[Rfam]
RNA sequence: GGAGGCGUCUGGGUUCCUGGUGGGCCCCCCGGUCUUCAACACCGGUGAGGCCGAGCAUCUCGGCCUGGCGGGUUCGAUUCCCGUCCGCCUCC
Numbered sequence: 001g002g003a004g005g006c007g008u009c010u011g012g013g014u015u016c017c018u019g020g021u022g023g024g025c026c027c028c029c030c031g032g033u034c035u036u037c038a039a040c041a042c043c044g045g046u047g048a049g050g051c052c053g054a055g056c057a058u059c060u061c062g063g064c065c066u067g068g069c070g071g072g073u074u075c076g077a078u079u080c081c082c083g084u085c086c087g088c089c090u091c092c
Base pairs, nucleotide, nucleotide: 001092002091003090004089005088006087007086012027013026015024016023017022029045030044031043032042033041048066049065050064051063052062069083070082071081072080
RNA: Selenocysteine transfer RNA